This 47-nucleotide RNA sequence from Ziziphus jujuba belongs to the Rfam family "Plastid-ycf3 group II-D1 intron". On this family, see Richter et al., Plant Commun 2023: "Retrograde signaling in plants: A critical review focusing on the GUN pathway and beyond".
RNA sequence: GGCCUUUCUGUCGUGUAUCCCCAAUUAAUGCAGCCUCAGAUGCUUCA
Numbered sequence: 001g002g003c004c005u006u007u008c009u010g011u012c013g014u015g016u017a018u019c020c021c022c023a024a025u026u027a028a029u030g031c032a033g034c035c036u037c038a039g040a041u042g043c044u045u046c047a
Stems, first nucleotide, its partner, number of pairs: 010025002013022001032044003